[Rfam]
Notes
Rfam assigns this 110-nucleotide RNA sequence from Desulfallas thermosapovorans to the family "TPP riboswitch aptamer (THI element)". Pairs were carried over by alignment from the consensus structure, which is taken from published work. Lineage of the source: Bacteria > Eubacteriales > Desulfallaceae > Desulfallas > Desulfallas thermosapovorans.

RNA sequence: UAUAAAGAAACGGGGAGCUCAUGUUAUGGGCUGAGAAAGGGCUUUUGAGCACCUGACCCGCGAACCUGAUCGGGGUAAUGCCCGCGUAGGAAAGGUAUGGUAGAUAAGCG
Numbered sequence: 001u002a003u004a005a006a007g008a009a010a011c012g013g014g015g016a017g018c019u020c021a022u023g024u025u026a027u028g029g030g031c032u033g034a035g036a037a038a039g040g041g042c043u044u045u046u047g048a049g050c051a052c053c054u055g056a057c058c059c060g061c062g063a064a065c066c067u068g069a070u071c072g073g074g075g076u077a078a079u080g081c082c083c084g085c086g087u088a089g090g091a092a093a094g095g096u097a098u099g100g101u102a103g104a105u106a107a108g109c110g
Stems, first nucleotide, its partner, number of pairs: 006098001008096001011060004016054001017031005039052001041050002065090004071084004